[Rfam]
RNA: THF-II riboswitch (folE RNA)
RNA sequence: CCGUUCAACUCGUCCCUCCUGUGAGAGGGACUACGGGAG
Numbered sequence: 001c002c003g004u005u006c007a008a009c010u011c012g013u014c015c016c017u018c019c020u021g022u023g024a025g026a027g028g029g030a031c032u033a034c035g036g037g038a039g
Stems, first nucleotide, its partner, number of pairs: 001036004012031007